Shown here is a 74-nucleotide RNA sequence from Otolemur garnettii, a member of the family "U1A polyadenylation inhibition element (PIE)". From the family's description: This family represents the U1A polyadenylation inhibition element (PIE). On this family, see Varani et al., Nat Struct Biol 2000: "The NMR structure of the 38 kDa U1A protein - PIE RNA complex reveals the basis of cooperativity in regulation of polyadenylation by human U1A protein". By type it is a cis-regulatory element.
RNA sequence: CCACACAGCACUGUACCCAGAGUCUGUGCCCAGACAUUGCACCUGGCACUGUUAGUCUGGAAUUAAUGUGGUUU
Numbered sequence: 001c002c003a004c005a006c007a008g009c010a011c012u013g014u015a016c017c018c019a020g021a022g023u024c025u026g027u028g029c030c031c032a033g034a035c036a037u038u039g040c041a042c043c044u045g046g047c048a049c050u051g052u053u054a055g056u057c058u059g060g061a062a063u064u065a066a067u068g069u070g071g072u073u074u
Stems, first nucleotide, its partner, number of pairs: 005052004017046004022035005